[Rfam]
RNA sequence: UAUAGCCCUCCGACAUCGGCGACGUGUCGCCACCGUCGAGGCAGGGGAGAGAGCCACGGCACAGCCGCCCACAGGACGGAACGCCGAAACAUCACGCGCAGGGGUGGAGUUUAGUAGGGUCAGUAAUGGCAGCCGAAUAACUUAGGCCCC
Dot-bracket structure: ..(.(((...((((...(((((....)))))...)))).)))).((.......)).((((.....((.((...)).))....))))..............(((((.(((((.....(..(((....)))...).....)))))..)))))
Numbered sequence: 001u002a003u004a005g006c007c008c009u010c011c012g013a014c015a016u017c018g019g020c021g022a023c024g025u026g027u028c029g030c031c032a033c034c035g036u037c038g039a040g041g042c043a044g045g046g047g048a049g050a051g052a053g054c055c056a057c058g059g060c061a062c063a064g065c066c067g068c069c070c071a072c073a074g075g076a077c078g079g080a081a082c083g084c085c086g087a088a089a090c091a092u093c094a095c096g097c098g099c100a101g102g103g104g105u106g107g108a109g110u111u112u113a114g115u116a117g118g119g120u121c122a123g124u125a126a127u128g129g130c131a132g133c134c135g136a137a138u139a140a141c142u143u144a145g146g147c148c149c150c
Stems, first nucleotide, its partner, number of pairs: 003043001005042003011038004018031005045055002057086004066078002069075002101150005107143005117133001120129003
Description
The record is a 150-nucleotide RNA from Duncaniella muris, which matches "RT-3 RNA" in Rfam. The match comes from Rfam's covariance-model search (88 bits). The family's RNA type in Rfam is small RNA. The organism belongs to Duncaniella, within Bacteria.